RNA sequence: ACUCGUCCAUCAGCUUGCGUCUAGGGGAAACCAUACAGACAAGUGCUUGCACUGGUCAUUUGAUACCCUUGGGAAGGUCUGAGAAAAGCCGCAGGUGUCGAGAGGACAAUGUCAGAAAUGACACCGGAUUGCAACAGCAACUUUGCCCGUUGACACUGUAGAGUCGAGGGUUUGGAAGCGCAGUCUAUGGCGGUAGAGCUAUGCAGUGCAAUACGCAAGGUGAUCCUCUGGAUUAUACCUCAAUUCAGACUACUCAUGGUCGAGU
Numbered sequence: 001a002c003u004c005g006u007c008c009a010u011c012a013g014c015u016u017g018c019g020u021c022u023a024g025g026g027g028a029a030a031c032c033a034u035a036c037a038g039a040c041a042a043g044u045g046c047u048u049g050c051a052c053u054g055g056u057c058a059u060u061u062g063a064u065a066c067c068c069u070u071g072g073g074a075a076g077g078u079c080u081g082a083g084a085a086a087a088g089c090c091g092c093a094g095g096u097g098u099c100g101a102g103a104g105g106a107c108a109a110u111g112u113c114a115g116a117a118a119u120g121a122c123a124c125c126g127g128a129u130u131g132c133a134a135c136a137g138c139a140a141c142u143u144u145g146c147c148c149g150u151u152g153a154c155a156c157u158g159u160a161g162a163g164u165c166g167a168g169g170g171u172u173u174g175g176a177a178g179c180g181c182a183g184u185c186u187a188u189g190g191c192g193g194u195a196g197a198g199c200u201a202u203g204c205a206g207u208g209c210a211a212u213a214c215g216c217a218a219g220g221u222g223a224u225c226c227u228c229u230g231g232a233u234u235a236u237a238c239c240u241c242a243a244u245u246c247a248g249a250c251u252a253c254u255c256a257u258g259g260u261c262g263a264g265u
Base pairs, nucleotide, nucleotide: 001265002264003263004262007259008258009257014219015218016217017216018215019214020213023070024069025068026067027066038057039056040055042053043052079248080247081246082245083244088191089190090189096108097107098106099104110123111122112121113120114119126186127185128184129183130182131181145171146170147169220236221235222234223233224232225231226230
RNA: Nuclear RNase P
Organism: Bifiguratus adelaidae